[Rfam]
A member of the RNA family "L31-Actinobacteria ribosomal protein leader" from a Propionibacteriales bacterium, 48 nucleotides long. The literature on the family includes a 2020 paper in BMC Microbiol by Eckert and Weinberg, "Discovery of 20 novel ribosomal leader candidates in bacteria and archaea". The match comes from Rfam's covariance-model search (43 bits). NCBI's taxonomy places the organism under Bacteria, Bacillati, Actinomycetota, Actinomycetes, Propionibacteriales. It is annotated as a cis-regulatory leader.

RNA sequence: GAGGUCCCGGUUCACGACGUGCGGAGAAACCGCGUCGACCCGGCGGCC
Numbered sequence: 001g002a003g004g005u006c007c008c009g010g011u012u013c014a015c016g017a018c019g020u021g022c023g024g025a026g027a028a029a030c031c032g033c034g035u036c037g038a039c040c041c042g043g044c045g046g047c048c
Stems, first nucleotide, its partner, number of pairs: 003048003007043004015037007